[Rfam]
RNA sequence: GCACCAGAUCUUUCCCAUUCCUUGCUGUGCAGUGUGGGCCUGGGGAUACAUGGUGCUUACAGAAAAGCAGAGUGGAUCCAGACAAGCAACUUCUCCUUCCCUGGGUGCCUGUCUCUAUGUCUCUGCAACAUUU
Numbered sequence: 001g002c003a004c005c006a007g008a009u010c011u012u013u014c015c016c017a018u019u020c021c022u023u024g025c026u027g028u029g030c031a032g033u034g035u036g037g038g039c040c041u042g043g044g045g046a047u048a049c050a051u052g053g054u055g056c057u058u059a060c061a062g063a064a065a066a067g068c069a070g071a072g073u074g075g076a077u078c079c080a081g082a083c084a085a086g087c088a089a090c091u092u093c094u095c096c097u098u099c100c101c102u103g104g105g106u107g108c109c110u111g112u113c114u115c116u117a118u119g120u121c122u123c124u125g126c127a128a129c130a131u132u133u
Stems, first nucleotide, its partner, number of pairs: 001056005012046006020038002067126006080114005086108002093105003
The family of this 133-nucleotide RNA sequence from Piaya cayana is "Small nucleolar RNA SNORA55". The family's RNA type in Rfam is H/ACA-box small nucleolar RNA. The organism belongs to Piaya, within Eukaryota. ACA55 is a member of the H/ACA class of snoRNA that guide the sites of modification of uridines to pseudouridines. Rfam 15.1 lists 1,476 matches to the family in 616 species. Its family is annotated with RNA processing and nucleolus in the Gene Ontology.